[Rfam]
RNA sequence: GUCAUCGCGAGGUGGGGUCUGGAGGAAGCCCAAUCCAAAGCGGCGGGGCGACGAACAGGAACUGGAUAUGAGGUGUGACGUAGACGGGGCCAGUGGGCACGUGACCAUGAAGCCCUCCAUCUGCAAUCGGUCUGCGUUUUAUAAAUCCAGCGUCUACGCCGUGACAGUUUCGUGU
Numbered sequence: 001g002u003c004a005u006c007g008c009g010a011g012g013u014g015g016g017g018u019c020u021g022g023a024g025g026a027a028g029c030c031c032a033a034u035c036c037a038a039a040g041c042g043g044c045g046g047g048g049c050g051a052c053g054a055a056c057a058g059g060a061a062c063u064g065g066a067u068a069u070g071a072g073g074u075g076u077g078a079c080g081u082a083g084a085c086g087g088g089g090c091c092a093g094u095g096g097g098c099a100c101g102u103g104a105c106c107a108u109g110a111a112g113c114c115c116u117c118c119a120u121c122u123g124c125a126a127u128c129g130g131u132c133u134g135c136g137u138u139u140u141a142u143a144a145a146u147c148c149a150g151c152g153u154c155u156a157c158g159c160c161g162u163g164a165c166a167g168u169u170u171c172g173u174g175u
Base pairs, nucleotide, nucleotide: 002015003014004013005012006011028175029174031172036167040162041161042160043159044158045157046155047154048153049152050151062150063149064148065147066146067145073142074141075140077138078137079136080135081134082133083132087115088114089113090112093108094107095106096105
The record is a 175-nucleotide RNA sequence from Wenzhouxiangella sp. AB-CW3, which matches "Group II catalytic intron D1-D4-3" in Rfam. The organism belongs to Wenzhouxiangella, within Bacteria. A search with the family's covariance model found it, with a score of 122 bits. The base pairs follow the family's consensus structure.